[Rfam]
RNA sequence: AGAUCAUCGAGAGGACCCGAGGGACCCGGCCCGGCGACGGUCCGGCAACCUGCCCCGAGGGAAAGGCGCCAAGGCCGGGAGCGAUGAGGA
Numbered sequence: 001a002g003a004u005c006a007u008c009g010a011g012a013g014g015a016c017c018c019g020a021g022g023g024a025c026c027c028g029g030c031c032c033g034g035c036g037a038c039g040g041u042c043c044g045g046c047a048a049c050c051u052g053c054c055c056c057g058a059g060g061g062a063a064a065g066g067c068g069c070c071a072a073g074g075c076c077g078g079g080a081g082c083g084a085u086g087a088g089g090a
Stems, first nucleotide, its partner, number of pairs: 004087005013043005021032003026078004044070003049066002051062001053060002074082001

The family of this 90-nucleotide RNA sequence from Thiemannella venezuelensis is "SAM riboswitch aptamer (S box leader)".
The source organism's lineage runs through Bacteria, Actinomycetes, Streptosporangiales, Streptosporangiaceae and Thiemannella.
Rfam links the family to the GO term regulation of gene expression.
Pairs were carried over by alignment from the consensus structure, which is taken from published work.